The record is a 107-nucleotide RNA sequence from Balneicella halophila, which matches "Bacteroidales small SRP" in Rfam.
Its family is annotated with signal recognition particle, plasma membrane targeting and SRP-dependent cotranslational protein targeting to membrane, signal sequence recognition in the Gene Ontology.
The family is grouped with related families in Rfam's "SRP clan".
Lineage of the source: Bacteria > Pseudomonadati > Bacteroidia > Bacteroidales > Balneicella.
By type it is a non-coding RNA gene.
A reference for the family is Ryan et al. (2020), "A high-resolution transcriptome map identifies small RNA regulation of metabolism in the gut microbe Bacteroides thetaiotaomicron", Nat Commun.
A search with the family's covariance model found it, with a score of 117 bits.
RNA sequence: UGCAGUCGGGUAAGUCCUAUGCGACCAGCUCCUACUGAAUCCCCCAGGGUCGGAAGGCAGCAAGGGUAGGUGGUCGUAGCGGUGCGACAUAGGUCGCUUACCCACCU
Dot-bracket structure: .......((((((((.(((((((((........................................................)).)).)))))...))))))))....
Numbered sequence: 001u002g003c004a005g006u007c008g009g010g011u012a013a014g015u016c017c018u019a020u021g022c023g024a025c026c027a028g029c030u031c032c033u034a035c036u037g038a039a040u041c042c043c044c045c046a047g048g049g050u051c052g053g054a055a056g057g058c059a060g061c062a063a064g065g066g067u068a069g070g071u072g073g074u075c076g077u078a079g080c081g082g083u084g085c086g087a088c089a090u091a092g093g094u095c096g097c098u099u100a101c102c103c104a105c106c107u
Stems, first nucleotide, its partner, number of pairs: 008103008017092005022086002024083002